[Rfam]
Nucleotides: 126
Stems, first nucleotide, its partner, number of pairs: 002053007020037002024033003067117004080104003084100001086098004
Number, partner (000 for none) and nucleotide at each position: 001000g002053g003052c004051c005050u006049c007048c008047u009000g010000g011000u012000g013000c014000u015000u016000a017000c018000c019000a020037c021036a022000c023000u024033g025032u026031g027000a028000u029000a030000u031026c032025a033024c034000a035000c036021u037020g038000u039000a040000c041000a042000g043000a044000a045000a046000u047008a048007g049006g050005a051004g052003g053002c054000c055000a056000a057000c058000u059000a060000a061000a062000c063000c064000u065000a066000c067117c068116c069115c070114a071000a072000a073000u074000a075000c076000a077000c078000c079000u080104c081103g082102g083000c084100u085000c086098a087097g088096g089095c090000c091000c092000u093000u094000u095089g096088c097087c098086u099000a100084g101000u102082c103081u104080g105000u106000a107000u108000u109000g110000u111000g112000a113000a114070u115069g116068g117067g118000a119000a120000g121000a122000c123000a124000c125000u126000g